Shown here is a 74-nucleotide RNA sequence from Sphingomonas sp. Leaf343, a member of the family "Makes More Granules Regulator RNA (mmgR)". SuhB later renamed mmgR (makes more granules regulator) was a putative non-coding RNA found multiple times in the Agrobacterium tumefaciens genome and related alpha-proteobacteria. Other non-coding RNAs uncovered in the same analysis include: speF, ybhL, metA, and serC.Several studies inSinorhizobium meliloti showed that suhB element is indeed a non-coding RNA:firstly it was detected on Northern blot and called Sm8RNA, secondly in an RNAseq study referred to as SmelC689.The mutant phenotype's (strain lacking the small RNA) cytoplasm contains higher content of polyhydroxybutyrate (PBH)storage granules than wild type strain. The sRNA is required to limit the PBH intracellular accumulation when the nitrogen-fixing Sinorhizobium meliloti is under condition of surplus carbon in relation to nitrogen. Rfam links the family to the GO terms DNA-templated transcription, termination, response to nitrogen compound and protein binding. It scores 46 bits against the family's covariance model. Pairs were carried over by alignment from the consensus structure. The source organism's lineage runs through Bacteria, Pseudomonadati, Alphaproteobacteria, Sphingomonadaceae and Sphingomonas.
[Rfam]
RNA sequence: AGAGCGUGCCUUUCAGGCAUCCUCUCCUAAAAACUUACACAGGCCGGCUUGUCCGGCCUUUUUUUUUGCCCGAC
Numbered sequence: 001a002g003a004g005c006g007u008g009c010c011u012u013u014c015a016g017g018c019a020u021c022c023u024c025u026c027c028u029a030a031a032a033a034c035u036u037a038c039a040c041a042g043g044c045c046g047g048c049u050u051g052u053c054c055g056g057c058c059u060u061u062u063u064u065u066u067u068g069c070c071c072g073a074c
Base pairs, nucleotide, nucleotide: 008018009017010016011015041059042058043057044056045055046054047053